A member of the RNA family "Small nucleolar RNA snoR2/U65" from Phoenix dactylifera, 157 nucleotides long. A search with the family's covariance model found it, with a score of 128 bits. The literature on the family includes a 1998 paper in J Cell Sci by Shaw et al., "Localization and processing from a polycistronic precursor of novel snoRNAs in maize". The family is grouped with related families in Rfam's "SNORA65 clan".
RNA sequence: GGCCCAAUGCCACGUCUCUGAUAGCCAAGUGCAUUGACCAGAGAUGCUAUGAUUGGGCCUAGAUCAAGUCAAGUUUUUGGUAUUUCGCAAGUUGAUAGGAACCUGUGGAUUAGAUCUUUAUUGUUCAUCCACGGAGCCGGUUUUUGCGAUUACAUUG
Numbered sequence: 001g002g003c004c005c006a007a008u009g010c011c012a013c014g015u016c017u018c019u020g021a022u023a024g025c026c027a028a029g030u031g032c033a034u035u036g037a038c039c040a041g042a043g044a045u046g047c048u049a050u051g052a053u054u055g056g057g058c059c060u061a062g063a064u065c066a067a068g069u070c071a072a073g074u075u076u077u078u079g080g081u082a083u084u085u086c087g088c089a090a091g092u093u094g095a096u097a098g099g100a101a102c103c104u105g106u107g108g109a110u111u112a113g114a115u116c117u118u119u120a121u122u123g124u125u126c127a128u129c130c131a132c133g134g135a136g137c138c139g140g141u142u143u144u145u146g147c148g149a150u151u152a153c154a155u156u157g
Base pairs, nucleotide, nucleotide: 002058003057004056005055006054007053008052009050013046014045015044016043017042018041020039022037024032025031085149086148087147088146089145098138099137103134104133105132107130108129109128110127